[Rfam]
Nucleotides: 154
Base pairs, nucleotide, nucleotide: 020040021039022038023037024036025035027033049080050079051078052077053076058068059067060066081097082096083095084094085093086092102147104145107142115132116131117130118129119128120127121126
Number, partner (000 for none) and nucleotide at each position: 001000g002000a003000c004000g005000a006000u007000g008000g009000g010000a011000a012000a013000g014000c015000g016000c017000c018000c019000g020040g021039a022038c023037u024036g025035u026000g027033c028000a029000c030000u031000a032000u033027g034000a035025a036024c037023a038022g039021u040020u041000g042000a043000c044000g045000c046000g047000g048000a049080g050079g051078a052077g053076g054000u055000u056000g057000g058068c059067g060066a061000a062000g063000c064000a065000u066060u067059c068058g069000g070000c071000g072000g073000a074000u075000g076053c077052c078051u079050c080049c081097c082096g083095g084094u085093g086092u087000u088000g089000g090000u091000c092086a093085c094084g095083c096082c097081g098000u099000a100000a101000a102147c103000a104145a105000a106000a107142c108000c109000c110000g111000a112000a113000a114000g115132u116131c117130g118129c119128g120127a121126g122000g123000u124000g125000a126121c127120u128119c129118g130117c131116g132115a133000g134000a135000c136000a137000a138000g139000g140000g141000u142107g143000a144000g145104u146000a147102g148000a149000c150000c151000u152000c153000a154000a
The family of this 154-nucleotide RNA from an Alicyclobacillaceae bacterium is "glmS glucosamine-6-phosphate activated ribozyme aptamer". The source organism's lineage runs through Bacteria, Bacillati, Bacillota, Bacilli and Alicyclobacillaceae. Rfam classes the family as a riboswitch. Pairs were carried over by alignment from the consensus structure, which is taken from published work.